[Rfam]
RNA: FMN riboswitch aptamer (RFN element)
Organism: Furfurilactobacillus rossiae
RNA sequence: UCAUUUCUUCGGGGCAGGGUGAAAUUCCCGACCGACGGUGACAACAAGGUGUCGUUUGACAGCUUGUUGAAGUCCGUGACCCGCGCAAGCGGUUGAUGCAGUGUGAAUCUGCAACCGACAGUACAGUCUGGAUGGGAGAAGAAAUUG
Numbered sequence: 001u002c003a004u005u006u007c008u009u010c011g012g013g014g015c016a017g018g019g020u021g022a023a024a025u026u027c028c029c030g031a032c033c034g035a036c037g038g039u040g041a042c043a044a045c046a047a048g049g050u051g052u053c054g055u056u057u058g059a060c061a062g063c064u065u066g067u068u069g070a071a072g073u074c075c076g077u078g079a080c081c082c083g084c085g086c087a088a089g090c091g092g093u094u095g096a097u098g099c100a101g102u103g104u105g106a107a108u109c110u111g112c113a114a115c116c117g118a119c120a121g122u123a124c125a126g127u128c129u130g131g132a133u134g135g136g137a138g139a140a141g142a143a144a145u146u147g
Stems, first nucleotide, its partner, number of pairs: 003145008017029003031127002033117002035077004072115002081092002097113005119130003